[Rfam]
RNA sequence: GUCAUCGUGAGGUGACUGCUGAAGGAAGUCGAAGGCAAAGCACUGGUCUGACGAACAGGAAUCGUAUAUGAGGCUAUCGUAUCGGAUGAGGAGGCAUACAUCUCUAAAGUCCAAUACCUGUACGGAAGGUACGGUGGUAUAUACGGCAGACAUAAGUGUGAAGGUGAAUGCG
Numbered sequence: 001g002u003c004a005u006c007g008u009g010a011g012g013u014g015a016c017u018g019c020u021g022a023a024g025g026a027a028g029u030c031g032a033a034g035g036c037a038a039a040g041c042a043c044u045g046g047u048c049u050g051a052c053g054a055a056c057a058g059g060a061a062u063c064g065u066a067u068a069u070g071a072g073g074c075u076a077u078c079g080u081a082u083c084g085g086a087u088g089a090g091g092a093g094g095c096a097u098a099c100a101u102c103u104c105u106a107a108a109g110u111c112c113a114a115u116a117c118c119u120g121u122a123c124g125g126a127a128g129g130u131a132c133g134g135u136g137g138u139a140u141a142u143a144c145g146g147c148a149g150a151c152a153u154a155a156g157u158g159u160g161a162a163g164g165u166g167a168a169u170g171c172g
Stems, first nucleotide, its partner, number of pairs: 001016006030170002035165002040159005046151005062146006073138003077134007084112004090105004
Group II catalytic intron D1-D4-3: a 172-nucleotide RNA sequence from Chitinivibrio alkaliphilus. Pairs were carried over by alignment from the consensus structure.